[Rfam]
Shown here is a 74-nucleotide RNA from Terriglobus saanensis, a member of the family "tRNA".
The source organism's lineage runs through Bacteria, Terriglobia, Terriglobales, Terriglobus and Terriglobus saanensis.
RNA sequence: GGGCGAGUAGCUCAGUUGGUUAGAGCGCCUGCCUUACAAGCAGGAUGUCGGGGGUUCGAGUCCCUCCUUGCCCA
Numbered sequence: 001g002g003g004c005g006a007g008u009a010g011c012u013c014a015g016u017u018g019g020u021u022a023g024a025g026c027g028c029c030u031g032c033c034u035u036a037c038a039a040g041c042a043g044g045a046u047g048u049c050g051g052g053g054g055u056u057c058g059a060g061u062c063c064c065u066c067c068u069u070g071c072c073c074a
Base pairs, nucleotide, nucleotide: 001073002072003071004070005069006068007067010026011025012024013023028044029043030042031041032040050066051065052064053063054062